Annotation: The family of this 113-nucleotide RNA sequence from Lysobacter sp. N42 is "Xanthomonadaceae sRNA sX13". Taxonomically the source falls in Lysobacter (Bacteria, Pseudomonadati, Pseudomonadota, Gammaproteobacteria).
RNA sequence: AACGCCCGGCGCUGAUCCUCCCCUCCCCUGGAGUGAUCCCCCGGAACGUAAGGUCCCUCCCCAGACCCCGUUCCUCCAGCCCCGCCGGCCCCCCCUGCCUGCGGGGCUUUUUA
Numbered sequence: 001a002a003c004g005c006c007c008g009g010c011g012c013u014g015a016u017c018c019u020c021c022c023c024u025c026c027c028c029u030g031g032a033g034u035g036a037u038c039c040c041c042c043g044g045a046a047c048g049u050a051a052g053g054u055c056c057c058u059c060c061c062c063a064g065a066c067c068c069c070g071u072u073c074c075u076c077c078a079g080c081c082c083c084g085c086c087g088g089c090c091c092c093c094c095c096u097g098c099c100u101g102c103g104g105g106g107c108u109u110u111u112u113a
Base pairs, nucleotide, nucleotide: 004012006011014038015037016036017035018033019032020031021030043074044073045072046071047070048069052067053066054065055064078108079107080106081105082104083103084102085101087099088098089097
The literature on the family includes a 2011 paper in Nucleic Acids Res by Schmidtke et al., "Genome-wide transcriptome analysis of the plant pathogen Xanthomonas identifies sRNAs with putative virulence functions".